[Rfam]
RNA sequence: CCGCUUGAAAGCCGGCGCUGUGCCUCUUAUCUUCAGGGUGUUCUUCGGAACUAUGGUGAUAAACGCGCUCGUAAUAAGCGGAUCGGACCCGGGGGCGGUACCCGGCGGCUCCACCAAACAUCCCUUGUUGGGGGAUCUUGGGGCCGAAACAGGAUCGACGAACGUCUAAAGGGGUUAGCUUUCACUCGGUGAGGUACCACCGUUAUCGGUCCGAUAAAGCAUAAUUGCCAACAACAAUCGUGCUCCGGUCGCAGUUGCUGCUUAAGCAGUAACCAAGAUCGAAAUUUAAGCCCAGUCCUCUAGCAAGGGCUGGCGGGGUCCGCAGGCACCUGGCAACAGAAGCCUGCACU
Dot-bracket structure: .......................................((((....))))...(((((.....((((((........((..(((...(((((.......)))))(((((((...........................)))))))............))).)).......))))..))..)))))((((..[[.[[[)))).....]]]]].......................................................................................................[[[[..((((((]]]]..........))))))...
Numbered sequence: 001c002c003g004c005u006u007g008a009a010a011g012c013c014g015g016c017g018c019u020g021u022g023c024c025u026c027u028u029a030u031c032u033u034c035a036g037g038g039u040g041u042u043c044u045u046c047g048g049a050a051c052u053a054u055g056g057u058g059a060u061a062a063a064c065g066c067g068c069u070c071g072u073a074a075u076a077a078g079c080g081g082a083u084c085g086g087a088c089c090c091g092g093g094g095g096c097g098g099u100a101c102c103c104g105g106c107g108g109c110u111c112c113a114c115c116a117a118a119c120a121u122c123c124c125u126u127g128u129u130g131g132g133g134g135a136u137c138u139u140g141g142g143g144c145c146g147a148a149a150c151a152g153g154a155u156c157g158a159c160g161a162a163c164g165u166c167u168a169a170a171g172g173g174g175u176u177a178g179c180u181u182u183c184a185c186u187c188g189g190u191g192a193g194g195u196a197c198c199a200c201c202g203u204u205a206u207c208g209g210u211c212c213g214a215u216a217a218a219g220c221a222u223a224a225u226u227g228c229c230a231a232c233a234a235c236a237a238u239c240g241u242g243c244u245c246c247g248g249u250c251g252c253a254g255u256u257g258c259u260g261c262u263u264a265a266g267c268a269g270u271a272a273c274c275a276a277g278a279u280c281g282a283a284a285u286u287u288a289a290g291c292c293c294a295g296u297c298c299u300c301u302a303g304c305a306a307g308g309g310c311u312g313g314c315g316g317g318g319u320c321c322g323c324a325g326g327c328a329c330c331u332g333g334c335a336a337c338a339g340a341a342g343c344c345u346g347c348a349c350u
Stems, first nucleotide, its partner, number of pairs: 040051004055186005065179002067175004079164002083161003089105005106146007187202004193212002196210003316331004322347006
The family of this 350-nucleotide RNA sequence from Qingshengfaniella alkalisoli is "Alphaproteobacteria transfer-messenger RNA". Its Rfam clan is "tRNA clan". Gene Ontology term of the family: RNA catabolic process. A reference for the family is Felden et al. (1997), "Probing the structure of the Escherichia coli 10Sa RNA (tmRNA)", RNA. A search with the family's covariance model found it, with a score of 295 bits.